Annotation: Rfam assigns this 118-nucleotide RNA from Candidatus Solibacter usitatus to the family "Group II catalytic intron D1-D4-4". Gene Ontology term of the family: Group II intron splicing. Rfam 15.1 lists 840 matches to the family in 506 species. Rfam's curators put it in the seed alignment.
RNA sequence: GAACUGAAAGGAGUUCACCAUGUAAAUUGCCUGUUCGGACAUGUAGCCCAGCCAGCGUUAGAAAGAGAAAUCGAUCUGGCGGAGCCUGGUGAGGGCGAACUCGCGAGCCGCAACGCAA
Numbered sequence: 001g002a003a004c005u006g007a008a009a010g011g012a013g014u015u016c017a018c019c020a021u022g023u024a025a026a027u028u029g030c031c032u033g034u035u036c037g038g039a040c041a042u043g044u045a046g047c048c049c050a051g052c053c054a055g056c057g058u059u060a061g062a063a064a065g066a067g068a069a070a071u072c073g074a075u076c077u078g079g080c081g082g083a084g085c086c087u088g089g090u091g092a093g094g095g096c097g098a099a100c101u102c103g104c105g106a107g108c109c110g111c112a113a114c115g116c117a118a
Base pairs, nucleotide, nucleotide: 019043020042021041022040023039051090052089053088054087055086056081057080058079059078060077061076065072066071095111096110097109